[Rfam]
RNA: PreQ1 (pre queuosine) riboswitch aptamer
Organism: Weissella paramesenteroides
RNA sequence: AUAUCAGUGGUUCGUAACCAUCCCACUCAAAAAAACUAGGAGUAG
Numbered sequence: 001a002u003a004u005c006a007g008u009g010g011u012u013c014g015u016a017a018c019c020a021u022c023c024c025a026c027u028c029a030a031a032a033a034a035a036c037u038a039g040g041a042g043u044a045g
Stems, first nucleotide, its partner, number of pairs: 006027005015038002